The family of this 95-nucleotide sequence from Streptosporangium sandarakinum is "Glycine riboswitch aptamer". Taxonomically the source falls in Streptosporangium (Bacteria, Actinomycetes, Streptosporangiales, Streptosporangiaceae). It scores 47 bits against the family's covariance model.

RNA sequence: UGAUCUCUGGAAAGCAGGCCACGUGGCCUCGCCGAAGGUGAAAGUCCGGCAAAAACCGGGCGAAGCUCUCAGGCAUCAAUGACAGAGGGGGAGGA
Numbered sequence: 001u002g003a004u005c006u007c008u009g010g011a012a013a014g015c016a017g018g019c020c021a022c023g024u025g026g027c028c029u030c031g032c033c034g035a036a037g038g039u040g041a042a043a044g045u046c047c048g049g050c051a052a053a054a055a056c057c058g059g060g061c062g063a064a065g066c067u068c069u070c071a072g073g074c075a076u077c078a079a080u081g082a083c084a085g086a087g088g089g090g091g092a093g094g095a
Stems, first nucleotide, its partner, number of pairs: 004088006016029004031074003034070002038068001040066001044061005